[Rfam]
RNA sequence: AAGCAAACAUAGCUCUUUUAGAAAAUUUCUACCAGGGUUUUCUGAUUUUGGUCAGAAAACCCAA
Numbered sequence: 001a002a003g004c005a006a007a008c009a010u011a012g013c014u015c016u017u018u019u020a021g022a023a024a025a026u027u028u029c030u031a032c033c034a035g036g037g038u039u040u041u042c043u044g045a046u047u048u049u050g051g052u053c054a055g056a057a058a059a060c061c062c063a064a
Stems, first nucleotide, its partner, number of pairs: 036061011
The record is a 64-nucleotide RNA from Mus musculus, which matches "U7 small nuclear RNA" in Rfam. About the family: Animal histone pre-mRNAs are spliced by a different mechanism than nuclear pre-mRNAs and self-splicing introns. The source organism's lineage runs through Eukaryota, Opisthokonta, Vertebrata, Dipnotetrapodomorpha and Mus. The match comes from Rfam's covariance-model search (38 bits).